[Rfam]
RNA sequence: CCCAGGGACUGGUGCGGAAAGGGCCCACAGUGGACUUGGUGCACUGUAUGCCCUAACCGCUCAGUCCCUGGG
Numbered sequence: 001c002c003c004a005g006g007g008a009c010u011g012g013u014g015c016g017g018a019a020a021g022g023g024c025c026c027a028c029a030g031u032g033g034a035c036u037u038g039g040u041g042c043a044c045u046g047u048a049u050g051c052c053c054u055a056a057c058c059g060c061u062c063a064g065u066c067c068c069u070g071g072g
Base pairs, nucleotide, nucleotide: 001072002071003070004069005068006067007066009064010063011062012061014060015059016058017057020054021053022052023051024050027047028046029045030044031043032042